[Rfam]
RNA sequence: UGAGGCUGAGGUAGUAGAUUGAAUAGUUGUGGAGUCUGGUUCUCCCUUUGAGCUAACUAUACAAUCUACUGUCUUUCCUAA
Numbered sequence: 001u002g003a004g005g006c007u008g009a010g011g012u013a014g015u016a017g018a019u020u021g022a023a024u025a026g027u028u029g030u031g032g033a034g035u036c037u038g039g040u041u042c043u044c045c046c047u048u049u050g051a052g053c054u055a056a057c058u059a060u061a062c063a064a065u066c067u068a069c070u071g072u073c074u075u076u077c078c079u080a081a
Stems, first nucleotide, its partner, number of pairs: 001081001003079003008075014023060005032044003046052001